[Rfam]
Alphaproteobacteria transfer-messenger RNA: a 552-nucleotide RNA. Gene Ontology term of the family: RNA catabolic process. The family's consensus secondary structure is taken from published work. A search with the family's covariance model found it, with a score of 203 bits.
RNA sequence: GACCUUUACAUUUUAAUCAAAUUAAGGCAUAAUAUUUGGUGCUAAUAUAGCUAUAGUAAUAAACGUAAUUUAGAAUAGAGGUUGCGGACUCGGGGGCAGUACCCGACGCCUCCACCAAUACAUAAGAAUGUUAUUCCCGCAUAGGGUGGAUUAUUGUUACAUGGCUUGCUUAUGUCAUUCCCGUGUAGGCGGGGAUCCAGAAAAAUAACUUAAAUAUGGAUACAGAAGUUACAUAUUUGAUAAAAUAAACAUAUAUAAAAAACAAGUUUUUUAUAUGUUUUACUGGAUCCCCGCCUACACGGGAAUGACAUAAGCAAGCCAUGCAACAACGCUCCCAUAUAAGAAUAACAUCAAAAUCUUGGGGGCGAAAUAGGAUCGACGUGCCUAAUAAAAAGAUUGCUUUUACUCGGGAUGAUUCCGCCGAUGGCUUUUGCCAUAUGGGUCAAAACAAAGAAACGCAAACGAUAAUAAUCGUUCUGGAGGUCGUUUAGCUUUAGCAGCUUAACCCUUACGCGGCUGGAUGGUUUGCCGGGCAACAGAAAAACCCUCACG
Numbered sequence: 001g002a003c004c005u006u007u008a009c010a011u012u013u014u015a016a017u018c019a020a021a022u023u024a025a026g027g028c029a030u031a032a033u034a035u036u037u038g039g040u041g042c043u044a045a046u047a048u049a050g051c052u053a054u055a056g057u058a059a060u061a062a063a064c065g066u067a068a069u070u071u072a073g074a075a076u077a078g079a080g081g082u083u084g085c086g087g088a089c090u091c092g093g094g095g096g097c098a099g100u101a102c103c104c105g106a107c108g109c110c111u112c113c114a115c116c117a118a119u120a121c122a123u124a125a126g127a128a129u130g131u132u133a134u135u136c137c138c139g140c141a142u143a144g145g146g147u148g149g150a151u152u153a154u155u156g157u158u159a160c161a162u163g164g165c166u167u168g169c170u171u172a173u174g175u176c177a178u179u180c181c182c183g184u185g186u187a188g189g190c191g192g193g194g195a196u197c198c199a200g201a202a203a204a205a206u207a208a209c210u211u212a213a214a215u216a217u218g219g220a221u222a223c224a225g226a227a228g229u230u231a232c233a234u235a236u237u238u239g240a241u242a243a244a245a246u247a248a249a250c251a252u253a254u255a256u257a258a259a260a261a262a263c264a265a266g267u268u269u270u271u272u273a274u275a276u277g278u279u280u281u282a283c284u285g286g287a288u289c290c291c292c293g294c295c296u297a298c299a300c301g302g303g304a305a306u307g308a309c310a311u312a313a314g315c316a317a318g319c320c321a322u323g324c325a326a327c328a329a330c331g332c333u334c335c336c337a338u339a340u341a342a343g344a345a346u347a348a349c350a351u352c353a354a355a356a357u358c359u360u361g362g363g364g365g366c367g368a369a370a371u372a373g374g375a376u377c378g379a380c381g382u383g384c385c386u387a388a389u390a391a392a393a394a395g396a397u398u399g400c401u402u403u404u405a406c407u408c409g410g411g412a413u414g415a416u417u418c419c420g421c422c423g424a425u426g427g428c429u430u431u432u433g434c435c436a437u438a439u440g441g442g443u444c445a446a447a448a449c450a451a452a453g454a455a456a457c458g459c460a461a462a463c464g465a466u467a468a469u470a471a472u473c474g475u476u477c478u479g480g481a482g483g484u485c486g487u488u489u490a491g492c493u494u495u496a497g498c499a500g501c502u503u504a505a506c507c508c509u510u511a512c513g514c515g516g517c518u519g520g521a522u523g524g525u526u527u528g529c530c531g532g533g534c535a536a537c538a539g540a541a542a543a544a545c546c547c548u549c550a551c552g
Stems, first nucleotide, its partner, number of pairs: 041051004055407005065400007080385003084382003090106005107367007408423003413445003417442003514531004520549002523546003